[Rfam]
RNA: Glycine riboswitch aptamer
RNA sequence: CCACCCGUCACGGGAGAACGCCGCCGAGCGCGGCUGCCGUAGGAGCAACCCCUCCCGGAAUCUCUCAGGCACCCGUACCGUGACGGCAGG
Numbered sequence: 001c002c003a004c005c006c007g008u009c010a011c012g013g014g015a016g017a018a019c020g021c022c023g024c025c026g027a028g029c030g031c032g033g034c035u036g037c038c039g040u041a042g043g044a045g046c047a048a049c050c051c052c053u054c055c056c057g058g059a060a061u062c063u064c065u066c067a068g069g070c071a072c073c074c075g076u077a078c079c080g081u082g083a084c085g086g087c088a089g090g
Base pairs, nucleotide, nucleotide: 006085007084008083009082010081011080012079013078020034021033022032023031036070037069038068039066043064044063045062049058050057